[Rfam]
RNA sequence: UGCAAGCAUGUUAUCAUUAAGAAGCAACUGUCUCUUGUAUAGAUUGUGUAUUAAUCU
Numbered sequence: 001u002g003c004a005a006g007c008a009u010g011u012u013a014u015c016a017u018u019a020a021g022a023a024g025c026a027a028c029u030g031u032c033u034c035u036u037g038u039a040u041a042g043a044u045u046g047u048g049u050a051u052u053a054a055u056c057u
Base pairs, nucleotide, nucleotide: 018037019036020035021034022033024031025030
Annotation:
The family of this 57-nucleotide sequence from Coffea canephora is "Plastid-rps18 3UTR RNA". Rfam's curators write: Plastid rps18 is a non-coding RNA (ncRNA) present in plastids. It was identified as a short stem-loop motif in the 3 prime untranslate region (3UTR) of rps18 gene. NCBI's taxonomy places the organism under Eukaryota, Streptophyta, Gunneridae, lamiids, Coffea. For this family Rfam cites "Retrograde signaling in plants: A critical review focusing on the GUN pathway and beyond" (Richter et al., Plant Commun, 2023).